[Rfam]
RNA sequence: AACGGUCCGUCUCCACCCCCCUGGGGCCGGGCCGUACGACGACCCCCGCUCUCCCCCCCGGCGGGGGUCGUCGCUU
Dot-bracket structure: .((((((((.(((..........))).))))))))..(((((((((((((.........)))))))))))))....
The family of this 76-nucleotide RNA sequence from Thermomonospora echinospora is "6C RNA". The family's RNA type in Rfam is cis-regulatory element. The organism belongs to Thermomonospora, within Bacteria. Rfam links the family to the GO term sporulation. A search with the family's covariance model found it, with a score of 56 bits.